RNA sequence: CCUGACGUCGAGCCAGACGCGCAAUGCUUGAUACGACGUUUUGUUCGUUCGGCUCGCGUUAUGC
Numbered sequence: 001c002c003u004g005a006c007g008u009c010g011a012g013c014c015a016g017a018c019g020c021g022c023a024a025u026g027c028u029u030g031a032u033a034c035g036a037c038g039u040u041u042u043g044u045u046c047g048u049u050c051g052g053c054u055c056g057c058g059u060u061a062u063g064c
Stems, first nucleotide, its partner, number of pairs: 001063001003061001005059003009056006018047002021044004026039002
Record summary
mir-375 microRNA precursor family: a 64-nucleotide sequence from Aquarana catesbeiana. A reference for the family is Chen et al. (2005), "The developmental miRNA profiles of zebrafish as determined by small RNA cloning", Genes Dev. The match comes from Rfam's covariance-model search (68 bits).